[Rfam]
RNA sequence: CGAACCAAGUAGAAGCACCCGCUUCUCACCUGUAGCGACGCAUAAAGCAGUUGGCAGGUUAAUCACAUUACACAUAACUGUGUAUAAGGAAGAGCGGGUAUUUUAUACCUGCUCUUCCUUUUUGCU
Numbered sequence: 001c002g003a004a005c006c007a008a009g010u011a012g013a014a015g016c017a018c019c020c021g022c023u024u025c026u027c028a029c030c031u032g033u034a035g036c037g038a039c040g041c042a043u044a045a046a047g048c049a050g051u052u053g054g055c056a057g058g059u060u061a062a063u064c065a066c067a068u069u070a071c072a073c074a075u076a077a078c079u080g081u082g083u084a085u086a087a088g089g090a091a092g093a094g095c096g097g098g099u100a101u102u103u104u105a106u107a108c109c110u111g112c113u114c115u116u117c118c119u120u121u122u123u124g125c126u
Stems, first nucleotide, its partner, number of pairs: 011026006028059003037052003040048002093113009
Dot-bracket structure: ..........((((((....)))))).(((......(((((.....)).)))....))).................................(((((((((...))))))))).............
RNA: Ribosomal protein L20 leader
Organism: Staphylococcus aureus